[Rfam]
Nucleotides: 080
Stems, first nucleotide, its partner, number of pairs: 001075004
Number, partner (000 for none) and nucleotide at each position: 001075g002074g003073c004072a005000g006000a007000u008000g009000a010000u011000g012000g013000u014000a015000u016000a017000u018000u019000c020000u021000c022000a023000c024000g025000a026000u027000g028000g029000u030000c031000u032000u033000c034000g035000g036000a037000u038000g039000c040000c041000a042000c043000a044000g045000u046000g047000c048000c049000g050000a051000u052000a053000a054000u055000g056000c057000c058000a059000a060000a061000g062000g063000c064000u065000g066000a067000g068000c069000u070000g071000a072004u073003g074002c075001c076000a077000g078000g079000a080000g
Small nucleolar RNA SNORD35: an 80-nucleotide RNA sequence from Rattus norvegicus. U35 is a C/D box snoRNA located in intron 6 of ribosomal protein L13A and intron 3 of ribosomal protein S11 in humans and at homologous positions in mouse and chicken ribosomal protein genes. A reference for the family is Nicoloso et al. (1996), "Intron-encoded, antisense small nucleolar RNAs: the characterization of nine novel species points to their direct role as guides for the 2'-O-ribose methylation of rRNAs", J Mol Biol. The base pairs follow the family's consensus structure, which was predicted with PFOLD. Rfam 15.1 lists 1,842 matches to the family in 634 species. The organism belongs to Rattus, within Eukaryota.